[Rfam]
RNA sequence: GGAGCAACUUCUGGAGAGCCCGUCAGAUGACGGCACCGAAGGAUUCACAAUCUCAGGUAAAAGGACAGAAGACAAUAA
Numbered sequence: 001g002g003a004g005c006a007a008c009u010u011c012u013g014g015a016g017a018g019c020c021c022g023u024c025a026g027a028u029g030a031c032g033g034c035a036c037c038g039a040a041g042g043a044u045u046c047a048c049a050a051u052c053u054c055a056g057g058u059a060a061a062a063g064g065a066c067a068g069a070a071g072a073c074a075a076u077a078a
Base pairs, nucleotide, nucleotide: 008071009070010069011068012067013066020033021032022031023030035058036057037056038054039053042052043051044050